[Rfam]
RNA: U8 small nucleolar RNA
Organism: Sciurus carolinensis
RNA sequence: UCUCCAGGGGGCAAUCCUUACCUAGUCCUCCUUUAGGAGGGCAGAGGGAACGGGAUGAUUGGAGCUCACAUGGUAUGUGAUUAGUGUCUCUGAAUAAUCAGGGCUUGGAACACUCUGAUUUUUCCUAUCUGAU
Dot-bracket structure: .....................((..((((((....)))))).))...........................((.((((....).))).))...(.(((((((...........))))))).)...........